RNA sequence: ACUGCGUACUUACCUACUUUAUAGUAGCUGAGAUAUAUGUAUUUCACCUACUAUAUAGCAGGUAAGUACGCGGUUU
Dot-bracket structure: (((((((((((((((.((.((((((((.(((.(((....))).))).)))))))).)).)))))))))))))))..

The record is a 76-nucleotide sequence from Ameiurus melas, which matches "mir-7563 microRNA precursor family" in Rfam.
Taxonomically the source falls in Ameiurus (Eukaryota, Metazoa, Eumetazoa, Actinopteri).
The match comes from Rfam's covariance-model search (92 bits).
Its family is annotated with RISC complex and miRNA-mediated post-transcriptional gene silencing in the Gene Ontology.